[Rfam]
RNA sequence: GCUGAGCUCUGUGGCGUGAGCCUGUAAUCCCAGCUCCUUGGGAGGCUGAGGCUGGUGGAUCACUUGAGCCCAGGAGUUCUGGUCUGCCCUGUGCUAUGUUGAUUGGGUGUCCACACUACGGUCGGUAUCAAUAUGGUGACUCUGGGGGAGCUUGGAGCCACCAGGUUGUUCUAAGGAGGGGUGAACCGGCCCAGGUCAGAAACGGAGCAGGUCAAAACCCCCGUGCUGAUCAGUAGUGGGAUUGCGCCUGUGAGUAGCCAGUGUAGAGCAGCCUGGACAACACAGCGAGACAUAGUCUUUU
Numbered sequence: 001g002c003u004g005a006g007c008u009c010u011g012u013g014g015c016g017u018g019a020g021c022c023u024g025u026a027a028u029c030c031c032a033g034c035u036c037c038u039u040g041g042g043a044g045g046c047u048g049a050g051g052c053u054g055g056u057g058g059a060u061c062a063c064u065u066g067a068g069c070c071c072a073g074g075a076g077u078u079c080u081g082g083u084c085u086g087c088c089c090u091g092u093g094c095u096a097u098g099u100u101g102a103u104u105g106g107g108u109g110u111c112c113a114c115a116c117u118a119c120g121g122u123c124g125g126u127a128u129c130a131a132u133a134u135g136g137u138g139a140c141u142c143u144g145g146g147g148g149a150g151c152u153u154g155g156a157g158c159c160a161c162c163a164g165g166u167u168g169u170u171c172u173a174a175g176g177a178g179g180g181g182u183g184a185a186c187c188g189g190c191c192c193a194g195g196u197c198a199g200a201a202a203c204g205g206a207g208c209a210g211g212u213c214a215a216a217a218c219c220c221c222c223g224u225g226c227u228g229a230u231c232a233g234u235a236g237u238g239g240g241a242u243u244g245c246g247c248c249u250g251u252g253a254g255u256a257g258c259c260a261g262u263g264u265a266g267a268g269c270a271g272c273c274u275g276g277a278c279a280a281c282a283c284a285g286c287g288a289g290a291c292a293u294a295g296u297c298u299u300u301u
Stems, first nucleotide, its partner, number of pairs: 001046003004023001006021004028043003048299007060288002063285002068278001070276005079271003083267005089261003093258005099252001104250007111240002114238005120231009129168004134163005140157007170176002178221005188213004196205002